Rfam assigns this 35-nucleotide RNA from Chrysochloris asiatica to the family "Iron response element I".
A reference for the family is Hentze et al. (1987), "Identification of the iron-responsive element for the translational regulation of human ferritin mRNA", Science.
The family has 62 seed sequences and 6,829 matches in Rfam 15.1.
Rfam links the family to the GO term response to iron ion.
A search with the family's covariance model found it, with a score of 41 bits.
It is annotated as a cis-regulatory element.
The base pairs follow the family's consensus structure, which is taken from published work.
NCBI's taxonomy places the organism under Eukaryota, Opisthokonta, Metazoa, Mammalia, Chrysochloris.

RNA sequence: CUGACUCUUGCUUCAACAGUGUUUGGACAAAGCAG
Numbered sequence: 001c002u003g004a005c006u007c008u009u010g011c012u013u014c015a016a017c018a019g020u021g022u023u024u025g026g027a028c029a030a031a032g033c034a035g
Base pairs, nucleotide, nucleotide: 001035002034003033005032006031008029010028012027013026014025015024016023017021